RNA sequence: AGAGAUAAAUUUUAUAAAUAAUAAACUUAUUUGCAAUAUUUUUUUCUGAGUAAAUAAUGCAUAUAAAUAACUUAUUAAAUUUACUAAACUUUUAAUUAUUUAAUAAAUUGGUACGACCGAGUGGAUUCGAACCACCGACCCCCACCA
Numbered sequence: 001a002g003a004g005a006u007a008a009a010u011u012u013u014a015u016a017a018a019u020a021a022u023a024a025a026c027u028u029a030u031u032u033g034c035a036a037u038a039u040u041u042u043u044u045u046c047u048g049a050g051u052a053a054a055u056a057a058u059g060c061a062u063a064u065a066a067a068u069a070a071c072u073u074a075u076u077a078a079a080u081u082u083a084c085u086a087a088a089c090u091u092u093u094a095a096u097u098a099u100u101u102a103a104u105a106a107a108u109u110g111g112u113a114c115g116a117c118c119g120a121g122u123g124g125a126u127u128c129g130a131a132c133c134a135c136c137g138a139c140c141c142c143c144a145c146c147a
Base pairs, nucleotide, nucleotide: 013038014037015036020031021030022029053068055066109144110143111142118137119136121135122134123133124132